[Rfam]
RNA sequence: GCCGGGAGAGGCGGCGCUCUCUUGUAAUCUAGUCACUUGGAGGCCUGAUUUGUGGGAUUGUUUACGUGUGGGAGUACUGGCUAUCGUUGUGCUAUGUUGAACAGACGUCCGCACCAAGCUCGGCAUCAAUAUGCGUCGCUUUGGAGGAGUCCAGAGCGACCAGGUUGCUCUAAGGAGGAGGGAACCGGUCCAGAGCCGAAAGGCAGCAGAUCAAACCUCCCGUGUCGAGCAGUAGUGGGAUAGCGUUUGUGAAUAGUCGACGGUAGACAGCCCAUGUGGUAAGUGAGACCCCUAUCUUU
Dot-bracket structure: ((((((((((......)))))))....(((........))))))..(((..(.(...((((((.((((((((....(((.(((((((((.(((((.(...((((((((((.(((.(.(((((((((((((.((.(((((((((((....))))))))))))).)))).((...)).(((((.....((((....(((....)))....))))...))))).)))))))))..).)))))...))))))))).)))))))))))))).)))))))))))..))))))..).)..)))...
Numbered sequence: 001g002c003c004g005g006g007a008g009a010g011g012c013g014g015c016g017c018u019c020u021c022u023u024g025u026a027a028u029c030u031a032g033u034c035a036c037u038u039g040g041a042g043g044c045c046u047g048a049u050u051u052g053u054g055g056g057a058u059u060g061u062u063u064a065c066g067u068g069u070g071g072g073a074g075u076a077c078u079g080g081c082u083a084u085c086g087u088u089g090u091g092c093u094a095u096g097u098u099g100a101a102c103a104g105a106c107g108u109c110c111g112c113a114c115c116a117a118g119c120u121c122g123g124c125a126u127c128a129a130u131a132u133g134c135g136u137c138g139c140u141u142u143g144g145a146g147g148a149g150u151c152c153a154g155a156g157c158g159a160c161c162a163g164g165u166u167g168c169u170c171u172a173a174g175g176a177g178g179a180g181g182g183a184a185c186c187g188g189u190c191c192a193g194a195g196c197c198g199a200a201a202g203g204c205a206g207c208a209g210a211u212c213a214a215a216c217c218u219c220c221c222g223u224g225u226c227g228a229g230c231a232g233u234a235g236u237g238g239g240a241u242a243g244c245g246u247u248u249g250u251g252a253a254u255a256g257u258c259g260a261c262g263g264u265a266g267a268c269a270g271c272c273c274a275u276g277u278g279g280u281a282a283g284u285g286a287g288a289c290c291c292c293u294a295u296c297u298u299u
Stems, first nucleotide, its partner, number of pairs: 001044003004023007028041003047296003052291001054289001058286006065278008077270003081266009091257005097251001101250008109239002112237003116233001118230009127167004132162002135160011169175002177220005187212004195204003